[Rfam]
RNA sequence: CCCGGUGGAGUAUGCCUACUCCACAAAAAUAGGCAUACUGCGCUAUUAUUAAAGGAGGAAACCCCGUUCGGCUCACGGUGCGGCAGUGUGGAGACCUGUCGUAAUGCUUCCGCUAUUUUACCUGGCGGAAUGCGAGUACACAUCUUGAGGAUUCAGUGUGUACGGAGUCAAAAAACAUGGCA
Numbered sequence: 001c002c003c004g005g006u007g008g009a010g011u012a013u014g015c016c017u018a019c020u021c022c023a024c025a026a027a028a029a030u031a032g033g034c035a036u037a038c039u040g041c042g043c044u045a046u047u048a049u050u051a052a053a054g055g056a057g058g059a060a061a062c063c064c065c066g067u068u069c070g071g072c073u074c075a076c077g078g079u080g081c082g083g084c085a086g087u088g089u090g091g092a093g094a095c096c097u098g099u100c101g102u103a104a105u106g107c108u109u110c111c112g113c114u115a116u117u118u119u120a121c122c123u124g125g126c127g128g129a130a131u132g133c134g135a136g137u138a139c140a141c142a143u144c145u146u147g148a149g150g151a152u153u154c155a156g157u158g159u160g161u162a163c164g165g166a167g168u169c170a171a172a173a174a175a176c177a178u179g180g181c182a
Stems, first nucleotide, its partner, number of pairs: 006042002009039010064078004068171001070169005079103008088095002106133002109129005136163008146155003

A member of the RNA family "malK-I RNA", 182 nucleotides long. It is one of the family's seed sequences. The family's RNA type in Rfam is cis-regulatory element.